[Rfam]
RNA: Pseudomonas sRNA P26
RNA sequence: GACAGUCUGGUUCUGGUUUGAGCUAUUUUUAAACCAAGAACUGGUGGUUUGAACCACCAGUUU
Numbered sequence: 001g002a003c004a005g006u007c008u009g010g011u012u013c014u015g016g017u018u019u020g021a022g023c024u025a026u027u028u029u030u031a032a033a034c035c036a037a038g039a040a041c042u043g044g045u046g047g048u049u050u051g052a053a054c055c056a057c058c059a060g061u062u063u
Stems, first nucleotide, its partner, number of pairs: 014036005039062010